[Rfam]
Overview: A member of the RNA family "Fluoride riboswitch aptamer (crcB RNA motif)" from Peptacetobacter hiranonis, 72 nucleotides long. NCBI's taxonomy places the organism under Bacteria, Bacillota, Clostridia, Peptacetobacter, Peptacetobacter hiranonis. Pairs were carried over by alignment from the consensus structure, which is taken from published work.
RNA sequence: AUACAACUAGGGAAUGAAUGUCUCCCUUGGGAAACCUAAACCGCUUAUCGAGCUGAUGACUUCUGCAACCAC
Dot-bracket structure: .........[[[[..(((.(((]]]]................(((.....)))....)))))).........